[Rfam]
RNA: L2-Alphaproteobacteria ribosomal protein leader
Organism: Palleronia salina
RNA sequence: GGGGACCUGCCCAGCAGGGCCCUUAAACCGCGGAGCCGCAAGGCUUCGCCACACAACGGAAGACAGAAA
Number, nucleotide and partner (000 for none) at each position: 001g023002g022003g021004g020005a000006c019007c018008u017009g000010c000011c000012c000013a000014g000015c000016a000017g008018g007019g006020c004021c003022c002023u001024u000025a000026a000027a000028c000029c000030g000031c000032g047033g046034a045035g044036c043037c042038g000039c000040a000041a000042g037043g036044c035045u034046u033047c032048g000049c000050c000051a000052c000053a000054c000055a000056a000057c000058g000059g000060a000061a000062g000063a000064c000065a000066g000067a000068a000069a000